[Rfam]
RNA sequence: AUUCCUUCAUAUCCUGCACGCAGUUAUUCGAUGGCUGUGGAGCCUGGAAACGGAGGAUAGAUAAGUUUAAAUGAAUACUAAUGCUUGGUGUCUUCUGAAGACACCGAGAUUGUGUGAAUUUGAACAUCA
Numbered sequence: 001a002u003u004c005c006u007u008c009a010u011a012u013c014c015u016g017c018a019c020g021c022a023g024u025u026a027u028u029c030g031a032u033g034g035c036u037g038u039g040g041a042g043c044c045u046g047g048a049a050a051c052g053g054a055g056g057a058u059a060g061a062u063a064a065g066u067u068u069a070a071a072u073g074a075a076u077a078c079u080a081a082u083g084c085u086u087g088g089u090g091u092c093u094u095c096u097g098a099a100g101a102c103a104c105c106g107a108g109a110u111u112g113u114g115u116g117a118a119u120u121u122g123a124a125c126a127u128c129a
Base pairs, nucleotide, nucleotide: 003057004056005055006054007053008052012048013047014046016043017042019039021037022036023035024034025033067123068122069121070120071119075115076114077113078112084108085107086106087104089103090102091101092100093099
Annotation:
A member of the RNA family "Caenorhabditis snoRNA ceN42" from Caenorhabditis briggsae, 129 nucleotides long. On this family, see Jia et al., BMC Mol Biol 2007: "Systematic identification of non-coding RNA 2,2,7-trimethylguanosine cap structures in Caenorhabditis elegans". The base pairs follow the family's consensus structure, which was predicted with RNAalifold. Lineage of the source: Eukaryota > Bilateria > Rhabditida > Rhabditidae > Caenorhabditis. Rfam links the family to the GO terms RNA processing and nucleolus.